[Rfam]
RNA sequence: GACUUAUCAAGAGAGGUGGAGGGACUGGCCCGACGAAGCCCAGCAACCAGUAUUAUUUUAGGUAAUACAAGGUGCUAAUUCCAGCGGCAUAUAUGCCGAGAGAUGAGGA
Numbered sequence: 001g002a003c004u005u006a007u008c009a010a011g012a013g014a015g016g017u018g019g020a021g022g023g024a025c026u027g028g029c030c031c032g033a034c035g036a037a038g039c040c041c042a043g044c045a046a047c048c049a050g051u052a053u054u055a056u057u058u059u060a061g062g063u064a065a066u067a068c069a070a071g072g073u074g075c076u077a078a079u080u081c082c083a084g085c086g087g088c089a090u091a092u093a094u095g096c097c098g099a100g101a102g103a104u105g106a107g108g109a
Stems, first nucleotide, its partner, number of pairs: 003107006013041001015040003021031003025084004042076004047072002050068006080101001085098005
RNA: SAM riboswitch aptamer (S box leader)
Organism: Clostridium liquoris